[Rfam]
Rfam assigns this 135-nucleotide RNA from Columba livia to the family "Small nucleolar RNA SNORA29". On this family, see Huttenhofer et al., EMBO J 2001: "RNomics: an experimental approach that identifies 201 candidates for novel, small, non-messenger RNAs in mouse". Gene Ontology terms of the family: RNA processing and nucleolus. The family's consensus secondary structure was predicted with PFOLD. Its Rfam clan is "SNORA20 clan". From the family's description: ACA29 is a member of the H/ACA class of snoRNA that guide the sites of modification of uridines to pseudouridines. It scores 112 bits against the family's covariance model. Rfam classes the family as an H/ACA-box small nucleolar RNA. Lineage of the source: Eukaryota > Chordata > Vertebrata > Archosauria > Columba.

RNA sequence: ACUCCCAUUAAACUACCACUUUUUCAAUUUCCAGAUAAAGUGGCUAUGCUUGUGGGAUAGAGAAUUUUUGCCACGGUCUGAAGGAAAAGGUUGUUUGUAUCUUUUUCCUAUAUGAAGUUGGCAGAACAUUCUUUA
Numbered sequence: 001a002c003u004c005c006c007a008u009u010a011a012a013c014u015a016c017c018a019c020u021u022u023u024u025c026a027a028u029u030u031c032c033a034g035a036u037a038a039a040g041u042g043g044c045u046a047u048g049c050u051u052g053u054g055g056g057a058u059a060g061a062g063a064a065u066u067u068u069u070g071c072c073a074c075g076g077u078c079u080g081a082a083g084g085a086a087a088a089g090g091u092u093g094u095u096u097g098u099a100u101c102u103u104u105u106u107c108c109u110a111u112a113u114g115a116a117g118u119u120g121g122c123a124g125a126a127c128a129u130u131c132u133u134u135a
Base pairs, nucleotide, nucleotide: 004056005055006054007053016043017042018041019040070122071121072120073119088109089108090107